RNA sequence: AGUGGAAGGUGACUGAGCAAACUUCGUGUUUGUUAGGAAAGUCCAUGCUAGCACAUACCCUCGUGGUAUGUAGUGUUUGUGCCAGAGGAAUAAAUAACUCUGGGUACGAGUAAUCGUAACGGCGAUGCAACAUUCUAAGGGAAACUAUGAACAAGCAUCUUAACGUGCCACAGAGACGAGUCUAUAUAGAAAUAUAUAGGAUGAAACGCGGUAAACCCCUCAAGCUAGCAACCCAAAUUUGGUAGGGGCACGAGAAGUACAGCAAUGUAUAACUUGCAGGUAAACCCUGAGAUUAAUAGUCACAAGAAGAUUUAUCUUCUACAGAACAUGGCUUAUGCAC
Dot-bracket structure: ...(..(.((((((.((((((.......))))))....[[[.[[[[[(((((((((((.......)))))).....(((.(((((((..........))))))((((((....))))).)((.((((.....(((...((....))..)))....)))).....(((((...........((((((((....)))))))).........)))..))))).))))))))...(((..........)))...((((..(............)..))))((((.....))))........))))))..(((((....))))).......]]]]]]]].)...)

A member of the RNA family "Bacterial RNase P class B" from Acholeplasma hippikon, 340 nucleotides long. Its family is annotated with dimeric ribonuclease P complex, tRNA processing and ribonuclease P activity in the Gene Ontology. Rfam's curators write: Ribonuclease P (RNase P) is a ubiquitous endoribonuclease, found in archaea, bacteria and eukarya as well as chloroplasts and mitochondria. The base pairs follow the family's consensus structure, which is taken from published work. The literature on the family includes a 1999 paper in Nucleic Acids Res by Brown, "The Ribonuclease P Database". Lineage of the source: Bacteria > Mycoplasmatota > Acholeplasmatales > Acholeplasmataceae > Acholeplasma.